[Rfam]
RNA sequence: UACCUUUGCACCCGUAUUGAGAAACACUCAAUUUACAUAAUAAUUAUUUAAGGAAUAUUAGCAUG
Numbered sequence: 001u002a003c004c005u006u007u008g009c010a011c012c013c014g015u016a017u018u019g020a021g022a023a024a025c026a027c028u029c030a031a032u033u034u035a036c037a038u039a040a041u042a043a044u045u046a047u048u049u050a051a052g053g054a055a056u057a058u059u060a061g062c063a064u065g
Stems, first nucleotide, its partner, number of pairs: 016032005
RNA: S15-Flavobacteria ribosomal protein leader